This 99-nucleotide RNA from Streptomyces sp. PVA_94-07 belongs to the Rfam family "che1 RNA". The organism belongs to Streptomyces, within Bacteria. The family's consensus secondary structure is taken from published work.
Nucleotides: 099
Base pairs, nucleotide, nucleotide: 001038002037003036004035005034006033007032008031014030015029016028017027018026019025020024043071044070045069046068047067048066049065050064
Number, partner (000 for none) and nucleotide at each position: 001038u002037g003036g004035a005034c006033a007032g008031g009000g010000g011000g012000g013000u014030c015029u016028c017027u018026g019025c020024c021000a022000u023000c024020g025019g026018c027017a028016g029015g030014g031008c032007c033006u034005g035004u036003c037002c038001g039000a040000a041000c042000c043071g044070g045069c046068u047067g048066c049065g050064c051000a052000u053000c054000c055000c056000c057000g058000u059000g060000c061000g062000a063000g064050g065049c066048g067047u068046g069045g070044c071043c072000a073000g074000u075000g076000g077000u078000u079000g080000u081000c082000g083000c084000u085000c086000g087000g088000g089000g090000g091000u092000g093000a094000u095000c096000g097000c098000c099000g